[Rfam]
RNA sequence: AGACCCCGCGCGGGAGAGUCCGCGCCGGUAGGACACCGGUGCGGCGCCGAAGGAGCAACCACUCCCCGACAACCUCUCAGGCCAACCGGACCGCGCGGGCGAG
Numbered sequence: 001a002g003a004c005c006c007c008g009c010g011c012g013g014g015a016g017a018g019u020c021c022g023c024g025c026c027g028g029u030a031g032g033a034c035a036c037c038g039g040u041g042c043g044g045c046g047c048c049g050a051a052g053g054a055g056c057a058a059c060c061a062c063u064c065c066c067c068g069a070c071a072a073c074c075u076c077u078c079a080g081g082c083c084a085a086c087c088g089g090a091c092c093g094c095g096c097g098g099g100c101g102a103g
Stems, first nucleotide, its partner, number of pairs: 006098008020044010046082003049078002053076003060068001
Description: Shown here is a 103-nucleotide RNA from Saccharopolyspora erythraea, a member of the family "Glycine riboswitch aptamer". It scores 61 bits against the family's covariance model. Lineage of the source: Bacteria > Bacillati > Pseudonocardiales > Pseudonocardiaceae > Saccharopolyspora erythraea. On this family, see Mandal et al., Science 2004: "A glycine-dependent riboswitch that uses cooperative binding to control gene expression".